A member of the RNA family "t44 RNA" from Proteus mirabilis, 115 nucleotides long. The base pairs follow the family's consensus structure, which was predicted with LocARNA. The literature on the family includes a 2002 paper in Nucleic Acids Res by Tjaden et al., "Transcriptome analysis of Escherichia coli using high-density oligonucleotide probe arrays".
RNA sequence: AUUCAAUUGUGUUAAUGACACACACAAAUCGACACAUACGCCGGGGUGCUCUUAUGUAAAGGUUUAAUCUUUACAGCUGAUGAGUCGGUCGUAUGGGAUUUGUGGAGGAAAUAAC
Numbered sequence: 001a002u003u004c005a006a007u008u009g010u011g012u013u014a015a016u017g018a019c020a021c022a023c024a025c026a027a028a029u030c031g032a033c034a035c036a037u038a039c040g041c042c043g044g045g046g047u048g049c050u051c052u053u054a055u056g057u058a059a060a061g062g063u064u065u066a067a068u069c070u071u072u073a074c075a076g077c078u079g080a081u082g083a084g085u086c087g088g089u090c091g092u093a094u095g096g097g098a099u100u101u102g103u104g105g106a107g108g109a110a111a112u113a114a115c
Stems, first nucleotide, its partner, number of pairs: 023104008035095005040089004048085004